[Rfam]
U7 small nuclear RNA: a 62-nucleotide sequence from Tupaia belangeri. The match comes from Rfam's covariance-model search (76 bits). For this family Rfam cites "Identification of the human U7 snRNP as one of several factors involved in the 3' end maturation of histone premessenger RNA's" (Mowry and Steitz, Science, 1987). The base pairs follow the family's consensus structure, which was predicted with PFOLD. NCBI's taxonomy places the organism under Eukaryota, Opisthokonta, Deuterostomia, Craniata, Tupaia belangeri.

RNA sequence: CAGUGUUACUGCUCUUUUAGAAUUUGUCUAGCAGGUUUUCUGAUCUUUAUUGGAAAGCCCCC
Numbered sequence: 001c002a003g004u005g006u007u008a009c010u011g012c013u014c015u016u017u018u019a020g021a022a023u024u025u026g027u028c029u030a031g032c033a034g035g036u037u038u039u040c041u042g043a044u045c046u047u048u049a050u051u052g053g054a055a056a057g058c059c060c061c062c
Base pairs, nucleotide, nucleotide: 034059035058036057037056038055039054040053041052042051043050044049